[Rfam]
Overview:
The family of this 103-nucleotide sequence is "Burkholderia sRNA 1". Its family is annotated with bacterial biofilm matrix in the Gene Ontology. It is annotated as a small RNA. The family's consensus secondary structure was predicted with RNAfold. About the family: Identified by RNA-seq, RACE and Northern blot. Strongly expressed in biofilm.
RNA sequence: CGUUCGAUGCACCGAAUUUGCAGGUGGAGAACGAGGAGACAAGCGGCGCAAAGCGCCCGAAAAGGAAAAGCGCUGUUGGGUAUGUGCCCAACAGCGCUUUUUA
Dot-bracket structure: .((((..(.(((((......).)))).)))))..........(.(((((...))))))........((((((((((((((......))))))))))))))...